[Rfam]
RNA sequence: UAGCAUUGUCCUAAGUCAAGCUUCUCUAACUUUGAUCAAGUUUUUAGAAAAAUAUAUCAACAUCUACAGAUUUAAACAAAUGCACAAUCAAGGUAUAUUUCAUGGAAAAUUUAAUGAAACCAAUUUGAUAUUGUAGAUGUUGAUACAUUUUUCUAUAAACUUGGUCAAAAUUAGGACAAAGCCAGAGUAGGCUAUAAUUUGGA
Numbered sequence: 001u002a003g004c005a006u007u008g009u010c011c012u013a014a015g016u017c018a019a020g021c022u023u024c025u026c027u028a029a030c031u032u033u034g035a036u037c038a039a040g041u042u043u044u045u046a047g048a049a050a051a052a053u054a055u056a057u058c059a060a061c062a063u064c065u066a067c068a069g070a071u072u073u074a075a076a077c078a079a080a081u082g083c084a085c086a087a088u089c090a091a092g093g094u095a096u097a098u099u100u101c102a103u104g105g106a107a108a109a110u111u112u113a114a115u116g117a118a119a120c121c122a123a124u125u126u127g128a129u130a131u132u133g134u135a136g137a138u139g140u141u142g143a144u145a146c147a148u149u150u151u152u153c154u155a156u157a158a159a160c161u162u163g164g165u166c167a168a169a170a171u172u173a174g175g176a177c178a179a180a181g182c183c184a185g186a187g188u189a190g191g192c193u194a195u196a197a198u199u200u201g202g203a
Base pairs, nucleotide, nucleotide: 005198006197007196008195009194011191012190014188016186017185020182021181022180023179025176026175031169032168033167034166035165045155046154047153048152049151050150051149052148055145056144057143059141060140061139062138063137064136065135066134067133068132072128073127074126075125076124

The family of this 203-nucleotide RNA from Miscanthus lutarioriparius is "MIR1435 microRNA precursor family".
NCBI's taxonomy places the organism under Eukaryota, Euphyllophyta, Liliopsida, Poales, Miscanthus.
Its family is annotated with miRNA-mediated post-transcriptional gene silencing and RISC complex in the Gene Ontology.
The base pairs follow the family's consensus structure, which was predicted with RNAalifold.